Shown here is a 110-nucleotide sequence from Glycine max, a member of the family "MIR1520 microRNA precursor family". The family is grouped with related families in Rfam's "MIR1520 microRNA precursor clan". The match comes from Rfam's covariance-model search (86 bits).
RNA sequence: UUUUUAUUGGAUGAUGAUUGCCACAUAUCAUGUUUUGAUUGGUCAAUGAAAAUAACAAUACAUUUCAUCUUCCAUGAAGUUCACAACAUGACACGUGACAAUAAUCAUCC
Numbered sequence: 001u002u003u004u005u006a007u008u009g010g011a012u013g014a015u016g017a018u019u020g021c022c023a024c025a026u027a028u029c030a031u032g033u034u035u036u037g038a039u040u041g042g043u044c045a046a047u048g049a050a051a052a053u054a055a056c057a058a059u060a061c062a063u064u065u066c067a068u069c070u071u072c073c074a075u076g077a078a079g080u081u082c083a084c085a086a087c088a089u090g091a092c093a094c095g096u097g098a099c100a101a102u103a104a105u106c107a108u109c110c
Stems, first nucleotide, its partner, number of pairs: 020099001022097002026093001029090003033086002036083001038081001040079001